Notes
The family of this 134-nucleotide sequence from Hymenochirus boettgeri is "Small Cajal body specific RNA 3". Rfam links the family to the GO terms RNA processing, Cajal body and nucleolus. The family is grouped with related families in Rfam's "SCARNA3 clan". scaRNAs are a specific class of small nuclear RNAs which localise to the Cajal bodies and guide the modification of RNA polymerase II transcribed spliceosomal RNAs U1, U2, U4, U5 and U12. It is annotated as a small Cajal body RNA. Taxonomically the source falls in Hymenochirus (Eukaryota, Opisthokonta, Vertebrata, Teleostomi).
RNA sequence: UCUGGAAGCUGCAGUUCUCAUUGCGUGCAGUGCAAGUGUCUGUCCGUGGUAGCAGUCUUCCUAUAUGAAUACUGGAGAUCUCUGUCUGGUUUUGCAUAGCUUUGGCAUAGUCAGAUCGUUCCUCUCCAUACAGA
Numbered sequence: 001u002c003u004g005g006a007a008g009c010u011g012c013a014g015u016u017c018u019c020a021u022u023g024c025g026u027g028c029a030g031u032g033c034a035a036g037u038g039u040c041u042g043u044c045c046g047u048g049g050u051a052g053c054a055g056u057c058u059u060c061c062u063a064u065a066u067g068a069a070u071a072c073u074g075g076a077g078a079u080c081u082c083u084g085u086c087u088g089g090u091u092u093u094g095c096a097u098a099g100c101u102u103u104g105g106c107a108u109a110g111u112c113a114g115a116u117c118g119u120u121c122c123u124c125u126c127c128a129u130a131c132a133g134a
Base pairs, nucleotide, nucleotide: 004061005060006059008056009055010054011053012052022048023047024046025045027043028042032039033038074127075126076125077124078123082118084116085115086114088112089111090110091109093107094106